[Rfam]
RNA sequence: AAGAUGUUCCGCUGCAAUCAUAUUAUAUUGGAAUGAGCAUCUG
Numbered sequence: 001a002a003g004a005u006g007u008u009c010c011g012c013u014g015c016a017a018u019c020a021u022a023u024u025a026u027a028u029u030g031g032a033a034u035g036a037g038c039a040u041c042u043g
Stems, first nucleotide, its partner, number of pairs: 003041007013033001015030004